c-di-AMP riboswitch aptamer (ydaO/yuaA leader): a 140-nucleotide RNA from Paenalicyclobacillus ferrooxydans. The organism belongs to Paenalicyclobacillus, within Bacteria. It scores 85 bits against the family's covariance model.
[Rfam]
RNA sequence: AGUUCUAUUAAGCCGAAUCCUGCACAAGUAGGUACGGGGGACAUCAAUCUUGGGGUGAAUAUAGGCGAAUGAUAGUCUAUACGGGAAAUCUUCCUUCCCGAACCCGACAACUAACCUCGGAGGCUGUAGGAGGAAUACGA
Numbered sequence: 001a002g003u004u005c006u007a008u009u010a011a012g013c014c015g016a017a018u019c020c021u022g023c024a025c026a027a028g029u030a031g032g033u034a035c036g037g038g039g040g041a042c043a044u045c046a047a048u049c050u051u052g053g054g055g056u057g058a059a060u061a062u063a064g065g066c067g068a069a070u071g072a073u074a075g076u077c078u079a080u081a082c083g084g085g086a087a088a089u090c091u092u093c094c095u096u097c098c099c100g101a102a103c104c105c106g107a108c109a110a111c112u113a114a115c116c117u118c119g120g121a122g123g124c125u126g127u128a129g130g131a132g133g134a135a136u137a138c139g140a
Stems, first nucleotide, its partner, number of pairs: 011125004019032005035119005042052002053105003061080006083099004